Mammalian CPEB3 ribozyme: a 77-nucleotide sequence from Alligator sinensis.
The family's consensus secondary structure is taken from published work.
The match comes from Rfam's covariance-model search (48 bits).
[Rfam]
RNA sequence: AUCUUAACAUUGGGGACCACAGCAGGAGUAGUCAAGCUGCAGCCCCUGUCAGAUUUCUCAAAUCUUUGAAUCCUGCU
Numbered sequence: 001a002u003c004u005u006a007a008c009a010u011u012g013g014g015g016a017c018c019a020c021a022g023c024a025g026g027a028g029u030a031g032u033c034a035a036g037c038u039g040c041a042g043c044c045c046c047u048g049u050c051a052g053a054u055u056u057c058u059c060a061a062a063u064c065u066u067u068g069a070a071u072c073c074u075g076c077u
Base pairs, nucleotide, nucleotide: 013046014045015044017042021077022076023075024074025073026072027071028040029039030038051065052064053063054062055061056060
Dot-bracket structure: ............[[[.[...((((((((((.......))).].]]]....((((((...)))))).....)))))))